[Rfam]
RNA sequence: GAGAUGCGUGGGCAAACCAUCGGAAACGGUGGGACGCAAAGCUACGGAACUACGGCGCCGGGGAAGACCUGGAUCCCCUGUGCUAUGUUCGCCGGGCCGCACUG
Number, nucleotide and partner (000 for none) at each position: 001g000002a000003g000004a000005u000006g000007c000008g000009u000010g000011g000012g037013c036014a000015a000016a000017c032018c031019a030020u029021c028022g027023g000024a000025a000026a000027c022028g021029g020030u019031g018032g017033g000034a000035c000036g013037c012038a000039a000040a000041g097042c096043u095044a000045c094046g093047g092048a089049a088050c087051u000052a000053c000054g000055g083056c082057g081058c080059c000060g000061g000062g000063g000064a000065a000066g000067a000068c000069c000070u000071g000072g000073a000074u000075c000076c000077c000078c000079u000080g058081u057082g056083c055084u000085a000086u000087g050088u049089u048090c000091g000092c047093c046094g045095g043096g042097c041098c000099g000100c000101a000102c000103u000104g000
A member of the RNA family "c-di-GMP-I riboswitch aptamer" from bacterium 1xD42-67, 104 nucleotides long. The family is grouped with related families in Rfam's "c-di-GMP_I riboswitch clan". A search with the family's covariance model found it, with a score of 56 bits.